[Rfam]
RNA sequence: GUCUUCUCAUUGAGCUCCUUUCUGUCAACUGGUGGCAGAUUAUGGAUUCGCACGAGAAGAAGAGAGAGUUCGCAGAACUAGCACUUAACCAUCUGUUUCUACAGAGGUUUGUUUGGCUGUUCUGUGAGACAUUG
Numbered sequence: 001g002u003c004u005u006c007u008c009a010u011u012g013a014g015c016u017c018c019u020u021u022c023u024g025u026c027a028a029c030u031g032g033u034g035g036c037a038g039a040u041u042a043u044g045g046a047u048u049c050g051c052a053c054g055a056g057a058a059g060a061a062g063a064g065a066g067a068g069u070u071c072g073c074a075g076a077a078c079u080a081g082c083a084c085u086u087a088a089c090c091a092u093c094u095g096u097u098u099c100u101a102c103a104g105a106g107g108u109u110u111g112u113u114u115g116g117c118u119g120u121u122c123u124g125u126g127a128g129a130c131a132u133u134g
Stems, first nucleotide, its partner, number of pairs: 003059006014051002016046003022038005070127006090107001092105004